[Rfam]
RNA: Potassium channel RNA editing signal
RNA sequence: GUAGGUUAUGGUGAUAUCGUUCCCCUUGGAUUUUGGGGUAAAAUGGUUGGUUCCCUUUGUGCCAUUGCUGGGGUGCUAACCCUUGCCCUUCCGGUUCCAGUAAUUGUUUCUAAU
Numbered sequence: 001g002u003a004g005g006u007u008a009u010g011g012u013g014a015u016a017u018c019g020u021u022c023c024c025c026u027u028g029g030a031u032u033u034u035g036g037g038g039u040a041a042a043a044u045g046g047u048u049g050g051u052u053c054c055c056u057u058u059g060u061g062c063c064a065u066u067g068c069u070g071g072g073g074u075g076c077u078a079a080c081c082c083u084u085g086c087c088c089u090u091c092c093g094g095u096u097c098c099a100g101u102a103a104u105u106g107u108u109u110c111u112a113a114u
Stems, first nucleotide, its partner, number of pairs: 001114002004111002008107004014101002019096001021094001037077004049063003